The family of this 97-nucleotide RNA from Halioglobus sp. HI00S01 is "t44 RNA". By type it is a small RNA. Pairs were carried over by alignment from the consensus structure, which was predicted with LocARNA.
RNA sequence: GUAUCGGGCACUAACUGACACACACAUAUCGACACCUGUUCCAGGGUGCCAACGGCUUGGCCUGCGGUUUGGAAUCGGGGAUAUGUGGAGGACUAAC
Numbered sequence: 001g002u003a004u005c006g007g008g009c010a011c012u013a014a015c016u017g018a019c020a021c022a023c024a025c026a027u028a029u030c031g032a033c034a035c036c037u038g039u040u041c042c043a044g045g046g047u048g049c050c051a052a053c054g055g056c057u058u059g060g061c062c063u064g065c066g067g068u069u070u071g072g073a074a075u076c077g078g079g080g081a082u083a084u085g086u087g088g089a090g091g092a093c094u095a096a097c
Stems, first nucleotide, its partner, number of pairs: 023087008035078002038075006048068003